[Rfam]
RNA sequence: CGAAGCCGCUUAAAGCGAGCCGAGGUACAGUCGUCCUAACUGGUAACGGUUAGCGAUUACGAUCGGGUGAAUUGCUGGAAACCCCUCAUAGCUUUUAUUGCCACAACGCAGCUGGAAACGGCAGACGUGAAGGCUCGAAAAAAUAAAAGAUUGGGCAAUCAGCAGCCAAGCUCCUGUCUCGAAAGAGUGGAGAAGGUUCAACGACUAGGAUAGACCAUCUAAGGCGCAAGCUAUGGUGAUGAAAUCCGUAGGUGAUACAGUGUACAUCAGCACUGAUUGAUCCGAAGUGCCCGGCCCCUACUAAAACUAGAGGGUGAAGAUAUAGUCUAGUCAUUUAUGAAAGUAAAUG
Number, nucleotide and partner (000 for none) at each position: 001c000002g000003a000004a000005g026006c025007c024008g000009c022010u000011u000012a000013a000014a000015g000016c000017g000018a000019g000020c000021c000022g009023a000024g007025g006026u005027a000028c000029a000030g035031u000032c000033g000034u000035c030036c000037u000038a000039a000040c000041u000042g000043g000044u000045a000046a000047c000048g000049g000050u000051u000052a000053g000054c000055g000056a000057u000058u000059a000060c000061g000062a000063u294064c293065g292066g291067g000068u289069g288070a000071a000072u000073u164074g163075c162076u161077g160078g159079a000080a000081a000082c000083c155084c154085c153086u000087c000088a000089u000090a000091g000092c000093u000094u000095u000096u000097a000098u000099u000100g000101c000102c000103a000104c000105a000106a000107c000108g000109c000110a000111g000112c000113u000114g000115g000116a000117a000118a000119c000120g000121g000122c000123a000124g000125a000126c000127g000128u000129g000130a000131a000132g000133g000134c000135u000136c000137g000138a000139a000140a000141a000142a000143a000144u000145a000146a000147a000148a000149g000150a000151u000152u000153g085154g084155g083156c000157a000158a000159u078160c077161a076162g075163c074164a073165g197166c196167c000168a000169a000170g000171c000172u190173c189174c000175u000176g000177u000178c185179u184180c000181g000182a000183a000184a179185g178186a000187g000188u000189g173190g172191a000192g000193a000194a000195g000196g166197u165198u000199c000200a000201a328202c000203g327204a326205c325206u324207a323208g000209g000210a000211u000212a000213g000214a000215c000216c000217a000218u000219c000220u000221a000222a000223g000224g000225c000226g000227c000228a000229a000230g000231c000232u000233a000234u000235g000236g000237u000238g000239a000240u000241g000242a000243a000244a000245u000246c000247c000248g000249u000250a000251g000252g000253u000254g000255a000256u000257a000258c000259a000260g000261u000262g000263u000264a000265c000266a000267u000268c000269a000270g000271c000272a000273c000274u000275g000276a000277u000278u000279g000280a000281u000282c000283c000284g000285a000286a000287g000288u069289g068290c000291c066292c065293g064294g063295c000296c000297c314298c313299u312300a000301c310302u309303a308304a000305a000306a000307c000308u303309a302310g301311a000312g299313g298314g297315u000316g000317a000318a000319g000320a000321u000322a000323u207324a206325g205326u204327c203328u201329a000330g000331u000332c000333a000334u347335u346336u345337a344338u343339g000340a000341a000342a000343g338344u337345a336346a335347a334348u000349g000
Record summary: This 349-nucleotide RNA from Planococcus halotolerans belongs to the Rfam family "Group I catalytic intron". Rfam describes the family as follows. Group I catalytic introns are large self-splicing ribozymes. They catalyse their own excision from mRNA, tRNA and rRNA precursors in a wide range of organisms. The core secondary structure consists of 9 paired regions (P1-P9). The family's consensus secondary structure is taken from published work. A reference for the family is Cech (1990), "Self-splicing of group I introns", Annu Rev Biochem.